[Rfam]
The record is a 140-nucleotide RNA from Anhinga anhinga, which matches "Small nucleolar RNA SNORA75" in Rfam.

RNA sequence: CACUUCUCAAUGAGCUCCUUCCUGCCAACAAAUCUGUGGCAGUCUAUGGAUUCGCACGAGAAGGAUAUUAACUGUUCAGUACUGGCAAACUCACAAUGGGGCUCCCAUUGAUUGUGAUCAGCCACUGCUGUUCUACAAGU
Numbered sequence: 001c002a003c004u005u006c007u008c009a010a011u012g013a014g015c016u017c018c019u020u021c022c023u024g025c026c027a028a029c030a031a032a033u034c035u036g037u038g039g040c041a042g043u044c045u046a047u048g049g050a051u052u053c054g055c056a057c058g059a060g061a062a063g064g065a066u067a068u069u070a071a072c073u074g075u076u077c078a079g080u081a082c083u084g085g086c087a088a089a090c091u092c093a094c095a096a097u098g099g100g101g102c103u104c105c106c107a108u109u110g111a112u113u114g115u116g117a118u119c120a121g122c123c124a125c126u127g128c129u130g131u132u133c134u135a136c137a138a139g140u
Base pairs, nucleotide, nucleotide: 003063004062005061006060007059008058014055015054016050017049018048022042023041024040025039026038074133077130078129079128094110095109096108097107098106099105
By type it is an H/ACA-box small nucleolar RNA. The base pairs follow the family's consensus structure, which was predicted with PFOLD. Rfam describes the family as follows. U23 belongs to the H/ACA class of snoRNAs. snoRNAs bind a number of proteins (including dyskerin, Gar1p and Nop10p in the case of the H/ACA class) to form snoRNP complexes. This class are thought to guide the sites of modification of uridines to pseudouridines by forming direct base pairing interactions with substrate RNAs. Targets include ribosomal and spliceosomal RNAs as well as the Trypanosoma spliced leader RNA (SL RNA) as possibly other, still unknown cellular RNAs. U23 can direct the pseudouridylation of U97 in human 18S rRNA (Bachellerie JP, Ganot, P unpublished data).